RNA sequence: GUCGGGAAGAGGAAGAAAAGAGUCUAAGAGCAGCAGGCAUGGGAACAUGGAGGAAAAAACAUAUAUACUUUUCUUCCCCUCUAAAGUUGGAGGUUGAAAUUUGCUGUGUGUUUUUCCCAAUGCCUCCCAUGCCUACAGUUCUUAGGCACUCCUUCCACUUCCUGUUGGCU
Numbered sequence: 001g002u003c004g005g006g007a008a009g010a011g012g013a014a015g016a017a018a019a020g021a022g023u024c025u026a027a028g029a030g031c032a033g034c035a036g037g038c039a040u041g042g043g044a045a046c047a048u049g050g051a052g053g054a055a056a057a058a059a060c061a062u063a064u065a066u067a068c069u070u071u072u073c074u075u076c077c078c079c080u081c082u083a084a085a086g087u088u089g090g091a092g093g094u095u096g097a098a099a100u101u102u103g104c105u106g107u108g109u110g111u112u113u114u115u116c117c118c119a120a121u122g123c124c125u126c127c128c129a130u131g132c133c134u135a136c137a138g139u140u141c142u143u144a145g146g147c148a149c150u151c152c153u154u155c156c157a158c159u160u161c162c163u164g165u166u167g168g169c170u
Base pairs, nucleotide, nucleotide: 009161010160011159012158015155016154017153020151021150022149023146024145025144026143027142028141029140030139031138035134036133037132038131039130040129041128042127043126044125046122047121048120050118052117053116054115055114056113057112058111
Background: MIR2118 microRNA precursor family: a 170-nucleotide RNA from Oryza meridionalis. The literature on the family includes a 2009 paper in Nucleic Acids Res by Xue et al., "Characterization and expression profiles of miRNAs in rice seeds". The family's consensus secondary structure was predicted with RNAalifold. The organism belongs to Oryza, within Eukaryota. Gene Ontology terms of the family: miRNA-mediated post-transcriptional gene silencing and RISC complex. A search with the family's covariance model found it, with a score of 132 bits.